The record is a 185-nucleotide sequence from Methylacidimicrobium cyclopophantes, which matches "6S / SsrS RNA" in Rfam.
RNA sequence: AUUUCCCUGUGCUGCGCGUGCUUGGAAUGCAUGCCUUUCCUCCGAUACGUCCGAUUACGGGAGCCGGCGUUGCUCGCGAUGCUGACGCCAGGCCUUCACUGGAAGACGGAGGCACGCGGCAAGGCUCCCACUUGCCUGCAAAGUGGUCGAAAGGCCCCAUUUCCACACGGCAGCAUGGGGAACUU
Dot-bracket structure: ..(((((((((((((.(((.............((((.((..((...............(((.(((....((((..((.....(....((((.......))))...).....))..))))...))).)))...............))..)).))))...........))))))))))))))))...
Numbered sequence: 001a002u003u004u005c006c007c008u009g010u011g012c013u014g015c016g017c018g019u020g021c022u023u024g025g026a027a028u029g030c031a032u033g034c035c036u037u038u039c040c041u042c043c044g045a046u047a048c049g050u051c052c053g054a055u056u057a058c059g060g061g062a063g064c065c066g067g068c069g070u071u072g073c074u075c076g077c078g079a080u081g082c083u084g085a086c087g088c089c090a091g092g093c094c095u096u097c098a099c100u101g102g103a104a105g106a107c108g109g110a111g112g113c114a115c116g117c118g119g120c121a122a123g124g125c126u127c128c129c130a131c132u133u134g135c136c137u138g139c140a141a142a143g144u145g146g147u148c149g150a151a152a153g154g155c156c157c158c159a160u161u162u163c164c165a166c167a168c169g170g171c172a173g174c175a176u177g178g179g180g181a182a183c184u185u
Stems, first nucleotide, its partner, number of pairs: 003182013017169003033155004038150002042146002059129003063125003070119004076113002083106001088102004
Background
The match comes from Rfam's covariance-model search (62 bits). The family's RNA type in Rfam is non-coding RNA gene. NCBI's taxonomy places the organism under Bacteria, Pseudomonadati, Verrucomicrobiota, Methylacidimicrobium.